[Rfam]
RNA sequence: GAAAAUUUGCUCUUUUAGUAUUUCUCCAGUAGGUUUCCUCAAUGAGGAAAUGUCUAC
Numbered sequence: 001g002a003a004a005a006u007u008u009g010c011u012c013u014u015u016u017a018g019u020a021u022u023u024c025u026c027c028a029g030u031a032g033g034u035u036u037c038c039u040c041a042a043u044g045a046g047g048a049a050a051u052g053u054c055u056a057c
Stems, first nucleotide, its partner, number of pairs: 032054003035049005
This 57-nucleotide RNA sequence from Salmo trutta belongs to the Rfam family "U7 small nuclear RNA". The organism belongs to Salmo, within Eukaryota. The match comes from Rfam's covariance-model search (36 bits). Animal histone pre-mRNAs are spliced by a different mechanism than nuclear pre-mRNAs and self-splicing introns. This processing involves the U7 snRNP, which contains only one RNA species: U7. The 5' end of U7 RNA is thought to base-pair to a conserved spacer element downstream of the cleavage site in histone pre-mRNA. This family contains a number of annotated U7 pseudogenes.